[Rfam]
RNA sequence: GCGCUUCCACGGACGACCGCACGACAGGGGCGGGGGACCCACAUUCGGUCACCGGUGACGGUGUCCUCGGGGUGAAGCCGGACGGGCCUUCGGGUCCGGCGGCCGGGUGCUUUCUCCCACCCGAACCCGACAGCUGACCUCGUAGGCGUCAGGAGAGGUUGA
Numbered sequence: 001g002c003g004c005u006u007c008c009a010c011g012g013a014c015g016a017c018c019g020c021a022c023g024a025c026a027g028g029g030g031c032g033g034g035g036g037a038c039c040c041a042c043a044u045u046c047g048g049u050c051a052c053c054g055g056u057g058a059c060g061g062u063g064u065c066c067u068c069g070g071g072g073u074g075a076a077g078c079c080g081g082a083c084g085g086g087c088c089u090u091c092g093g094g095u096c097c098g099g100c101g102g103c104c105g106g107g108u109g110c111u112u113u114c115u116c117c118c119a120c121c122c123g124a125a126c127c128c129g130a131c132a133g134c135u136g137a138c139c140u141c142g143u144a145g146g147c148g149u150c151a152g153g154a155g156a157g158g159u160u161g162a
Stems, first nucleotide, its partner, number of pairs: 002148004006029003030143006040069001070128003078102003105122004
Notes
The record is a 162-nucleotide RNA sequence from Isoptericola variabilis, which matches "c-di-AMP riboswitch aptamer (ydaO/yuaA leader)" in Rfam. It scores 58 bits against the family's covariance model. The pairing is the family consensus, mapped onto this sequence.